[Rfam]
RNA: Glycine riboswitch aptamer
Organism: Lentzea tibetensis
Nucleotides: 097
Base pairs, nucleotide, nucleotide: 006092007091008090009089010088011087012086013085020038021037022036023035040076041075042074043072044071047070048069049068
Number, partner (000 for none) and nucleotide at each position: 001000u002000g003000a004000a005000c006092c007091c008090g009089u010088g011087c012086g013085g014000g015000a016000g017000a018000g019000u020038c021037c022036g023035a024000g025000c026000g027000a028000a029000c030000c031000c032000g033000g034000c035023u036022c037021g038020g039000c040076g041075c042074c043072g044071a045000a046000g047070g048069a049068g050000c051000a052000a053000g054000u055000u056000c057000c058000u059000c060000c061000c062000c063000g064000g065000a066000a067000c068049c069048u070047c071044u072043c073000a074042g075041g076040c077000a078000c079000c080000c081000a082000g083000g084000a085013c086012c087011g088010c089009g090008u091007g092006g093000g094000c095000g096000a097000g